[Rfam]
The record is a 348-nucleotide RNA from Octadecabacter sp. SW4, which matches "Alphaproteobacteria transfer-messenger RNA" in Rfam. Pairs were carried over by alignment from the consensus structure, which is taken from published work. Rfam describes the family as follows. Bacterial tmRNA, also known as 10Sa RNA or SsrA, is named for its dual tRNA and mRNA-like properties. Its role is to liberate the mRNA from a stalled ribosome. To accomplish this part of the tmRNA is used as a reading frame that ends in a translation stop signal. The broken mRNA is replaced in the ribosome by the tmRNA and translation of the tmRNA leads to addition of a proteolysis tag to the incomplete protein enabling recognition by a protease.
RNA sequence: CCCAUUGAAAUUGCGCCUGCGCUCGCCUACUUUAGGUCUGUCCCUCGGGACUAUGAACAUAAACGCGCACGUAAUAACCGGAUUGGACCAGGGGGCGGUACCCUGCGCCUCCACCAUCAUCUCUCAUUUGGGGACUUUGGGGGCGAAAUAGGAUCGACAAACGUCUAAAGGUGUUUGCUUUGUUUCGGUGAGUUACCACCGUUAUCGGUACAUCAAAGCUAGUUGCAAAUGACAACAAAGCUCCGAUGGCUCUCGCAGCGUAAGCUGUGCGAAACGUCGAAAAUUAAGCCCUUGCGCCUAGCAGCGUAAGGCGGGGUUCGCAGGCACCUGGCAACAGAAGCCUGCACU
Number, nucleotide and partner (000 for none) at each position: 001c000002c000003c000004a000005u000006u000007g000008a000009a000010a000011u000012u000013g000014c000015g000016c000017c000018u000019g000020c000021g000022c000023u000024c000025g000026c000027c000028u000029a000030c000031u000032u000033u000034a000035g000036g000037u000038c000039u000040g051041u050042c049043c048044c000045u000046c000047g000048g043049g042050a041051c040052u000053a000054u000055g185056a184057a183058c182059a181060u000061a000062a000063a000064c000065g178066c177067g174068c173069a172070c171071g000072u000073a000074a000075u000076a000077a000078c000079c163080g162081g000082a000083u160084u159085g158086g000087a000088c000089c105090a104091g103092g102093g101094g000095g000096c000097g000098g000099u000100a000101c093102c092103c091104u090105g089106c145107g144108c143109c142110u141111c140112c139113a000114c000115c000116a000117u000118c000119a000120u000121c000122u000123c000124u000125c000126a000127u000128u000129u000130g000131g000132g000133g000134a000135c000136u000137u000138u000139g112140g111141g110142g109143g108144c107145g106146a000147a000148a000149u000150a000151g000152g000153a000154u000155c000156g000157a000158c085159a084160a083161a000162c080163g079164u000165c000166u000167a000168a000169a000170g000171g070172u069173g068174u067175u000176u000177g066178c065179u000180u000181u059182g058183u057184u056185u055186c201187g200188g199189u198190g000191a000192g211193u210194u000195a209196c208197c207198a189199c188200c187201g186202u000203u000204a000205u000206c000207g197208g196209u195210a193211c192212a000213u000214c000215a000216a000217a000218g000219c000220u000221a000222g000223u000224u000225g000226c000227a000228a000229a000230u000231g000232a000233c000234a000235a000236c000237a000238a000239a000240g000241c000242u000243c000244c000245g000246a000247u000248g000249g000250c000251u000252c000253u000254c000255g000256c000257a000258g000259c000260g000261u000262a000263a000264g000265c000266u000267g000268u000269g000270c000271g000272a000273a000274a000275c000276g000277u000278c000279g000280a000281a000282a000283a000284u000285u000286a000287a000288g000289c000290c000291c000292u000293u000294g000295c000296g000297c000298c000299u000300a000301g000302c000303a000304g000305c000306g000307u000308a000309a000310g000311g000312c000313g000314g329315g328316g327317u326318u000319c000320g345321c344322a343323g342324g341325c340326a317327c316328c315329u314330g000331g000332c000333a000334a000335c000336a000337g000338a000339a000340g325341c324342c323343u322344g321345c320346a000347c000348u000